[Rfam]
RNA sequence: UUUUGAGAUAGAGGUGCGAAAUAAAUCAGUAAAUACUUGAGCGGGAGCUGUGAGAGUAUUGAAAGGGUAUUUUGCCGAAGAAGGACGUUUGCCAAAGCAACCUUCUGGGCGUAAAUAGAAGAUAUUUACGACUGUCACUACGGUGUUGCGCUAUCCUGAAU
Numbered sequence: 001u002u003u004u005g006a007g008a009u010a011g012a013g014g015u016g017c018g019a020a021a022u023a024a025a026u027c028a029g030u031a032a033a034u035a036c037u038u039g040a041g042c043g044g045g046a047g048c049u050g051u052g053a054g055a056g057u058a059u060u061g062a063a064a065g066g067g068u069a070u071u072u073u074g075c076c077g078a079a080g081a082a083g084g085a086c087g088u089u090u091g092c093c094a095a096a097g098c099a100a101c102c103u104u105c106u107g108g109g110c111g112u113a114a115a116u117a118g119a120a121g122a123u124a125u126u127u128a129c130g131a132c133u134g135u136c137a138c139u140a141c142g143g144u145g146u147u148g149c150g151c152u153a154u155c156c157u158g159a160a161u
Base pairs, nucleotide, nucleotide: 007155008154009153010152011151016075017074018073019072020071021070022069023068032060033059034058035057036056037055038054079106080105081104082103083102084101087098088097089096090095107133108132110130111129112128113127114126115125116124117123136145137144138143

The record is a 161-nucleotide sequence from Aerococcus suis, which matches "Lysine riboswitch aptamer" in Rfam. The family's consensus secondary structure is taken from published work. Riboswitches are metabolite binding domains within certain messenger RNAs that serve as precision sensors for their corresponding targets. A search with the family's covariance model found it, with a score of 95 bits. The organism belongs to Aerococcus, within Bacteria. Rfam links the family to the GO term lysine biosynthetic process.